[Rfam]
RNA sequence: UCCGCAGGCCUGCCUCAACCGCAGGUCGGGAGCCGGGGAACCACCGUUCCUUGGGGUGAAUCGGAGCGAUCGCGGCCACGGCCGGGGCCGCUCGGUAGGAGACCUUCCGCUCCGAACCCGUCAGCUAACCCGGUAGGCGCGAGGGAAGGAAAG
Numbered sequence: 001u002c003c004g005c006a007g008g009c010c011u012g013c014c015u016c017a018a019c020c021g022c023a024g025g026u027c028g029g030g031a032g033c034c035g036g037g038g039a040a041c042c043a044c045c046g047u048u049c050c051u052u053g054g055g056g057u058g059a060a061u062c063g064g065a066g067c068g069a070u071c072g073c074g075g076c077c078a079c080g081g082c083c084g085g086g087g088c089c090g091c092u093c094g095g096u097a098g099g100a101g102a103c104c105u106u107c108c109g110c111u112c113c114g115a116a117c118c119c120g121u122c123a124g125c126u127a128a129c130c131c132g133g134u135a136g137g138c139g140c141g142a143g144g145g146a147a148g149g150a151a152a153g
Base pairs, nucleotide, nucleotide: 011139012138013137014136019030020029032134033133034132035131036130037129042053043052054119055118056117062095064093065092066091067090068089098113099112100111101110
Dot-bracket structure: ..........((((....((........)).((((((....((........))(((.....(.(((((....................))))).)..((((........))))...))).........)))))).))))..............
Shown here is a 153-nucleotide RNA from Kitasatospora acidiphila, a member of the family "c-di-AMP riboswitch aptamer (ydaO/yuaA leader)". This family represents a conserved RNA structure found upstream of the ydaO and yuaA genes in Bacillus subtilis and related genes in other bacteria. The ydaO/yuaA element is thought to act as a genetic 'off' switch for the ydaO and yuaA genes in its native state.